Notes: The family of this 263-nucleotide part of an RNA from Candidatus Nitrospira inopinata is "Bacterial large subunit ribosomal RNA". Gene Ontology terms of the family: ribosome and structural constituent of ribosome. The organism belongs to Nitrospira, within Bacteria. A search with the family's covariance model found it, with a score of 2866 bits.

RNA sequence: GGAGAGUUGAGAGGGGCUUUCACUAGUACGAGAGGACUGUGAAGGACGGACCUCUAGUGUGCCGGUUGUCGCGCCAGCGGCAGUGCCGGGUAGCUAUGUCCGGUUGCGAUAAUCGCUGAAAGCAUCUAAGCGAGAAGCGUGCCUCAAGAUAAGCUCUCCCGGGGCGCAAGCCCCCUAAAGACCACUCGUAGACGACGAGUUUGAUAGGCUGGGUGUGGAAGGCCCGUAAGGGUUGAAGCUAACCAGUACUAAUCGGUCGUGCG
Numbered sequence: 001g002g003a004g005a006g007u008u009g010a011g012a013g014g015g016g017c018u019u020u021c022a023c024u025a026g027u028a029c030g031a032g033a034g035g036a037c038u039g040u041g042a043a044g045g046a047c048g049g050a051c052c053u054c055u056a057g058u059g060u061g062c063c064g065g066u067u068g069u070c071g072c073g074c075c076a077g078c079g080g081c082a083g084u085g086c087c088g089g090g091u092a093g094c095u096a097u098g099u100c101c102g103g104u105u106g107c108g109a110u111a112a113u114c115g116c117u118g119a120a121a122g123c124a125u126c127u128a129a130g131c132g133a134g135a136a137g138c139g140u141g142c143c144u145c146a147a148g149a150u151a152a153g154c155u156c157u158c159c160c161g162g163g164g165c166g167c168a169a170g171c172c173c174c175c176u177a178a179a180g181a182c183c184a185c186u187c188g189u190a191g192a193c194g195a196c197g198a199g200u201u202u203g204a205u206a207g208g209c210u211g212g213g214u215g216u217g218g219a220a221g222g223c224c225c226g227u228a229a230g231g232g233u234u235g236a237a238g239c240u241a242a243c244c245a246g247u248a249c250u251a252a253u254c255g256g257u258c259g260u261g262c263g
Stems, first nucleotide, its partner, number of pairs: 001159008011145004017045007047102005055096003062089005067082006106140003113133005162175003177260001180258004184200005205251003208247005215239001221234005